Description: The family of this 102-nucleotide sequence from Lederbergia lenta is "Purine riboswitch aptamer". Pairs were carried over by alignment from the consensus structure, which is taken from published work. The organism belongs to Lederbergia, within Bacteria.
RNA sequence: AAAAAAUAAAUAGCUUUAUAUCGUAUAAUAACGGGAAUAUGGCCCGUAAGUUUCUACCGAGCUGCCGUAAAUAGCUUGACUACGAGGUUAUGGGAAUAAUGU
Dot-bracket structure: .................((.(((((...(.(((((.......))))).)........(((((((.......)))))))..))))).))..............